[Rfam]
The family of this 53-nucleotide RNA from Ziziphus jujuba is "Plastid-psbl-rps4 3UTR RNA". The literature on the family includes a 2023 paper in Plant Commun by Richter et al., "Retrograde signaling in plants: A critical review focusing on the GUN pathway and beyond". It scores 68 bits against the family's covariance model. Rfam's curators write: Plastid psbl-rps4-psbC is a non-coding RNA (ncRNA) present in plastids. It is compose of two short stem-loops in tandem in the terminal 3 prime untranslate region (3UTR) mostly in psbl and rps4 seed plants genes. The organism belongs to Ziziphus jujuba, within Eukaryota.
RNA sequence: GGAAAAGAGAGGGAUUCGAACCCUCGAUACGAAAAACUUGUACAACGGAUUAG
Numbered sequence: 001g002g003a004a005a006a007g008a009g010a011g012g013g014a015u016u017c018g019a020a021c022c023c024u025c026g027a028u029a030c031g032a033a034a035a036a037c038u039u040g041u042a043c044a045a046c047g048g049a050u051u052a053g
Base pairs, nucleotide, nucleotide: 009025010024011023012022013021028042029041030040031039032038
Dot-bracket structure: ........(((((.......)))))..(((((.....)))))...........